RNA sequence: GCUGCAAGUACAGCUAUCGCCGUUCAAGUAAUUGAAAGGAGGAAAGUCCGGACAGCAAAGAGUAACGUGCCACCUAACGGAUGGUUUUAUUAGCAAUAAUAAAAAGACAGUGCCACAGAAAAUAACCACCAUAUGCAAAUAUGGAAAGGGUGAAAAUGUGAGGUAAGAGCUCACAGCGUUUAUGGUAACAUAAAUGUCGGGUAAACCUUACGUGCUGAAAUGUCAAAUAAGUGAGUGUUUGAGAGCGACUCGUUCGAUAUUCAUGGGUAGACAGAUGGAUUCUAAGAGUGAUUUUAGAACUAGAUAAAUGAUGGCUAUGAAGUAGCAAUAUUUCAAAAACAGAACCCGGCUUACGUGCUUGCAGUAUUU
Number, nucleotide and partner (000 for none) at each position: 001g365002c364003u363004g362005c361006a360007a359008g358009u357010a356011c000012a316013g315014c314015u313016a312017u311018c310019g000020c039021c038022g000023u036024u035025c034026a033027a032028g000029u000030a000031a000032u027033u026034g025035a024036a023037a000038g021039g020040a000041g000042g000043a000044a352045a351046g350047u000048c349049c348050g347051g346052a000053c217054a216055g215056c214057a000058a000059a000060g251061a250062g249063u248064a000065a213066c212067g211068u210069g209070c084071c083072a082073c000074c080075u000076a000077a000078c000079g000080g074081a000082u072083g071084g070085u104086u102087u101088u000089a000090u000091u000092a000093g000094c000095a000096a000097u000098a000099a000100u000101a087102a086103a000104a085105a208106g207107a000108c000109a000110g206111u205112g202113c201114c200115a000116c000117a000118g000119a000120a000121a000122a000123u000124a000125a000126c149127c148128a000129c144130c143131a142132u141133a140134u139135g000136c000137a000138a000139a134140u133141a132142u131143g130144g129145a000146a000147a000148g127149g126150g000151u000152g000153a000154a000155a000156a000157u175158g174159u173160g172161a171162g170163g000164u000165a000166a000167g000168a000169g000170c162171u161172c160173a159174c158175a157176g198177c196178g195179u194180u193181u192182a191183u190184g189185g000186u000187a000188a000189c184190a183191u182192a181193a180194a179195u178196g177197u000198c176199g000200g114201g113202u112203a000204a000205a111206c110207c106208u105209u069210a068211c067212g066213u065214g056215c055216u054217g053218a000219a000220a000221u273222g272223u271224c270225a000226a000227a000228u000229a000230a000231g264232u263233g262234a261235g260236u259237g000238u000239u000240u000241g000242a000243g255244a254245g253246c252247g000248a063249c062250u061251c060252g246253u245254u244255c243256g000257a000258u000259a236260u235261u234262c233263a232264u231265g000266g000267g000268u000269a000270g224271a223272c222273a221274g000275a000276u000277g000278g000279a000280u299281u298282c297283u296284a295285a294286g293287a292288g000289u000290g000291a000292u287293u286294u285295u284296a283297g282298a281299a280300c000301u000302a000303g000304a000305u000306a000307a000308a000309u000310g018311a017312u016313g015314g014315c013316u012317a000318u000319g000320a000321a000322g000323u000324a000325g000326c000327a000328a000329u000330a000331u000332u000333u000334c000335a000336a000337a000338a000339a000340c000341a000342g000343a000344a000345c000346c051347c050348g049349g048350c046351u045352u044353a000354c000355g000356u010357g009358c008359u007360u006361g005362c004363a003364g002365u001366a000367u000368u000369u000